[Rfam]
RNA sequence: AGAUCCACAUAAGCGCCAGCACUGUGGCUGCCCGACAUGGAGCACAGUGGACGAGGUGGAGGUUUAUCGAACAUUCGGCGGAUGCCUCCCGGUAGCAUAGGAUCACUACCGACAAACGCAGGGACAAAACAGCGGGGUAACCUGCUGCACAAUACCGGCGUAUGAUACCUA
Numbered sequence: 001a002g003a004u005c006c007a008c009a010u011a012a013g014c015g016c017c018a019g020c021a022c023u024g025u026g027g028c029u030g031c032c033c034g035a036c037a038u039g040g041a042g043c044a045c046a047g048u049g050g051a052c053g054a055g056g057u058g059g060a061g062g063u064u065u066a067u068c069g070a071a072c073a074u075u076c077g078g079c080g081g082a083u084g085c086c087u088c089c090c091g092g093u094a095g096c097a098u099a100g101g102a103u104c105a106c107u108a109c110c111g112a113c114a115a116a117c118g119c120a121g122g123g124a125c126a127a128a129a130c131a132g133c134g135g136g137g138u139a140a141c142c143u144g145c146u147g148c149a150c151a152a153u154a155c156c157g158g159c160g161u162a163u164g165a166u167a168c169c170u171a
Base pairs, nucleotide, nucleotide: 020049021048022047023046024045025044026043029040058089059088060087061086062085067078068077069076070075090111091110092109093108094107095106116161117160118159119158121156122155130147131146132145133144134143135142136141

This 171-nucleotide RNA from Brevibacillus fluminis belongs to the Rfam family "glmS glucosamine-6-phosphate activated ribozyme aptamer". The match comes from Rfam's covariance-model search (108 bits).